[Rfam]
RNA sequence: UGAUACCAGGGUCAAAAGGUCAUGCUUUUUCAUGCUUGCAUGAAAAAGCAUGAUUUCUUGACCCGUCAAACACCGAAAAAUGAGCAAAUUUGAGGUGUUUCAGGAUCGCAGGAGCAUGAAAUGCGAAGCAAUUUUCAGGAAAUG
Numbered sequence: 001u002g003a004u005a006c007c008a009g010g011g012u013c014a015a016a017a018g019g020u021c022a023u024g025c026u027u028u029u030u031c032a033u034g035c036u037u038g039c040a041u042g043a044a045a046a047a048g049c050a051u052g053a054u055u056u057c058u059u060g061a062c063c064c065g066u067c068a069a070a071c072a073c074c075g076a077a078a079a080a081u082g083a084g085c086a087a088a089u090u091u092g093a094g095g096u097g098u099u100u101c102a103g104g105a106u107c108g109c110a111g112g113a114g115c116a117u118g119a120a121a122u123g124c125g126a127a128g129c130a131a132u133u134u135u136c137a138g139g140a141a142a143u144g
Stems, first nucleotide, its partner, number of pairs: 001144002004141001006139002010063004017056012030043005068100007077091003103134004108129002114124004